[Rfam]
RNA sequence: GGGAUAUGAUGAGUGGUCUCUAUUCUUUUGUGAGAGGGGUGUCCGCCCCCAAAGCCUGUUACGACAGUGGGCACUCUCAUUUGAACCAUCUGAUCCC
Number, nucleotide and partner (000 for none) at each position: 001g097002g096003g095004a094005u000006a000007u000008g000009a000010u000011g000012a000013g000014u088015g087016g086017u085018c000019u000020c000021u000022a000023u034024u033025c032026u000027u000028u000029u000030g000031u000032g025033a024034g023035a000036g077037g076038g075039g074040u073041g072042u071043c070044c000045g000046c000047c000048c000049c000050c000051a000052a000053a000054g000055c000056c069057u000058g068059u067060u000061a000062c000063g000064a000065c000066a000067g059068u058069g056070g043071g042072c041073a040074c039075u038076c037077u036078c000079a000080u000081u000082u000083g000084a000085a017086c016087c015088a014089u000090c000091u000092g000093a000094u004095c003096c002097c001
This 97-nucleotide RNA sequence from Cannabis sativa belongs to the Rfam family "Small nucleolar RNA Z279/snoR105/snoR108". It is annotated as a C/D-box small nucleolar RNA. The literature on the family includes a 2002 paper in Curr Biol by Marker et al., "Experimental RNomics: identification of 140 candidates for small non-messenger RNAs in the plant Arabidopsis thaliana". The match comes from Rfam's covariance-model search (69 bits). Rfam's curators write: This family includes the plant snoRNAs known as Z279, snoR105 and snoR108. NCBI's taxonomy places the organism under Eukaryota, Tracheophyta, Mesangiospermae, rosids, Cannabis. The family is grouped with related families in Rfam's "snoU13 clan". Gene Ontology terms of the family: nucleolus and RNA processing.